[Rfam]
RNA: RT-17 RNA
RNA sequence: UACCUUGCCUCUAGGCAAAACAUAUCAAUUCUGAAGCUGUAUUAGUAGACUUUGAAAGCAAAAUUUCAAAGGUUGAAAAUUCGGCAAACGAGCAUACAA
Numbered sequence: 001u002a003c004c005u006u007g008c009c010u011c012u013a014g015g016c017a018a019a020a021c022a023u024a025u026c027a028a029u030u031c032u033g034a035a036g037c038u039g040u041a042u043u044a045g046u047a048g049a050c051u052u053u054g055a056a057a058g059c060a061a062a063a064u065u066u067c068a069a070a071g072g073u074u075g076a077a078a079a080u081u082c083g084g085c086a087a088a089c090g091a092g093c094a095u096a097c098a099a
Base pairs, nucleotide, nucleotide: 006017007016008015009014041080042079048074051070052069053068054067055066056065057064